[Rfam]
Nucleotides: 076
Stems, first nucleotide, its partner, number of pairs: 014043004020076002023073001025071001027039003048065007
Number, partner (000 for none) and nucleotide at each position: 001000g002000u003000u004000g005000c006000a007000a008000a009000u010000c011000c012000a013000a014043g015042g016041c017040c018000g019000c020076a021075g022000c023073a024000g025071a026000a027039g028038u029037g030000c031000a032000g033000a034000a035000g036000g037029c038028a039027u040017g041016g042015c043014c044000c045000u046000g047000u048065c049064a050063g051062a052061u053060u054059c055000c056000a057000g058000u059054g060053a061052a062051u063050c064049u065048g066000c067000a068000a069000a070000c071025u072000g073023u074000a075021c076020u
The record is a 76-nucleotide RNA sequence from Crocodylus porosus, which matches "Mammalian CPEB3 ribozyme" in Rfam. The mammalian CPEB3 ribozyme is a self cleaving RNA located in the second intron of the CPEB3 gene which belongs to a family of genes regulating messenger RNA polyadenylation. The match comes from Rfam's covariance-model search (41 bits).